[Rfam]
RNA: Bacterial large subunit ribosomal RNA, nucleotides 617 to 846
Organism: Lactococcus garvieae
RNA sequence: GAGUUACGUUAUGAUGCGAGGUUAAGCUGAAGAGGCGGAGCCGUAGCGAAAGCGAGUCUGAAUAGGGCGCUUUAGUAUCAUGAUGUAGACCCGAAACCUAGUGACCUAUCCAUGAGCAGGUUGAAGGUGCGGUAAGACGCACUGGAGGACCGAACCAGGACACGUUGAAAAGUGUUUGGAUGACUUGUGGAUAGCGGAGAAAUUCCAAACGAACUGGGAGAUAGCUGGUU
Numbered sequence: 001g002a003g004u005u006a007c008g009u010u011a012u013g014a015u016g017c018g019a020g021g022u023u024a025a026g027c028u029g030a031a032g033a034g035g036c037g038g039a040g041c042c043g044u045a046g047c048g049a050a051a052g053c054g055a056g057u058c059u060g061a062a063u064a065g066g067g068c069g070c071u072u073u074a075g076u077a078u079c080a081u082g083a084u085g086u087a088g089a090c091c092c093g094a095a096a097c098c099u100a101g102u103g104a105c106c107u108a109u110c111c112a113u114g115a116g117c118a119g120g121u122u123g124a125a126g127g128u129g130c131g132g133u134a135a136g137a138c139g140c141a142c143u144g145g146a147g148g149a150c151c152g153a154a155c156c157a158g159g160a161c162a163c164g165u166u167g168a169a170a171a172g173u174g175u176u177u178g179g180a181u182g183a184c185u186u187g188u189g190g191a192u193a194g195c196g197g198a199g200a201a202a203u204u205c206c207a208a209a210c211g212a213a214c215u216g217g218g219a220g221a222u223a224g225c226u227g228g229u230u
Stems, first nucleotide, its partner, number of pairs: 005087013020042004026036003046053002056068004090228002093225001097218006106194011117182001119151004126143006155179003159176005196206003